[Rfam]
RNA sequence: CAGACGCUGCGCUACUGGCGAUCGAGGUGGGAAACCACCGGGGACCGCAGCCAUCAGAAGCCGCUCGCCCGGGCACCGUUC
Numbered sequence: 001c002a003g004a005c006g007c008u009g010c011g012c013u014a015c016u017g018g019c020g021a022u023c024g025a026g027g028u029g030g031g032a033a034a035c036c037a038c039c040g041g042g043g044a045c046c047g048c049a050g051c052c053a054u055c056a057g058a059a060g061c062c063g064c065u066c067g068c069c070c071g072g073g074c075a076c077c078g079u080u081c
Base pairs, nucleotide, nucleotide: 003054006051007050008049009048010047011046015042016041017069018068019067020066021065027038028037029036030035060074061073062072